[Rfam]
Histidine operon leader: a 114-nucleotide RNA sequence from Agaribacter marinus. The family's consensus secondary structure is taken from published work. Rfam links the family to the GO term histidine biosynthetic process. A search with the family's covariance model found it, with a score of 53 bits. The organism belongs to Agaribacter, within Bacteria. A reference for the family is Kolter and Yanofsky (1982), "Attenuation in amino acid biosynthetic operons", Annu Rev Genet.

RNA sequence: UCAUCAUCAUCACAACACAUAACCUUUCAGGUAUGUGCUUGGAAGGUAUUGUUUCUUCCAAGUCGGCAUUCGGAACAUAAAGCCCUCGGAAGGAAACUUCGGGGGCUUUUUUUU
Numbered sequence: 001u002c003a004u005c006a007u008c009a010u011c012a013c014a015a016c017a018c019a020u021a022a023c024c025u026u027u028c029a030g031g032u033a034u035g036u037g038c039u040u041g042g043a044a045g046g047u048a049u050u051g052u053u054u055c056u057u058c059c060a061a062g063u064c065g066g067c068a069u070u071c072g073g074a075a076c077a078u079a080a081a082g083c084c085c086u087c088g089g090a091a092g093g094a095a096a097c098u099u100c101g102g103g104g105g106c107u108u109u110u111u112u113u114u
Stems, first nucleotide, its partner, number of pairs: 005037003009032003038062008077111001079109011091098002